[Rfam]
RNA sequence: CGGGUUUACUCCUGGAUGUUACCGUUUCGUCCGACAUGGGCCGGACGGCGUUUUGGUGUCUGAUUCGGUAUGAAUCGGGAGCACCAUCUGCGUAGGCUCAGGGAGAUCGCUCUCUCUGCUUUAAAGCUUGCGCCACCUACGGUCUUGGAUAGCCCCCGCCAGGCAGGGACCCCAAUUUUUUCAAAGCCGGCAGCACAAGGCUGCCG
Numbered sequence: 001c002g003g004g005u006u007u008a009c010u011c012c013u014g015g016a017u018g019u020u021a022c023c024g025u026u027u028c029g030u031c032c033g034a035c036a037u038g039g040g041c042c043g044g045a046c047g048g049c050g051u052u053u054u055g056g057u058g059u060c061u062g063a064u065u066c067g068g069u070a071u072g073a074a075u076c077g078g079g080a081g082c083a084c085c086a087u088c089u090g091c092g093u094a095g096g097c098u099c100a101g102g103g104a105g106a107u108c109g110c111u112c113u114c115u116c117u118g119c120u121u122u123a124a125a126g127c128u129u130g131c132g133c134c135a136c137c138u139a140c141g142g143u144c145u146u147g148g149a150u151a152g153c154c155c156c157c158g159c160c161a162g163g164c165a166g167g168g169a170c171c172c173c174a175a176u177u178u179u180u181u182c183a184a185a186g187c188c189g190g191c192a193g194c195a196c197a198a199g200g201c202u203g204c205c206g
Stems, first nucleotide, its partner, number of pairs: 002172006011163004023050002028047006035040001054086006060078007090159003095154004120149005126143003189205006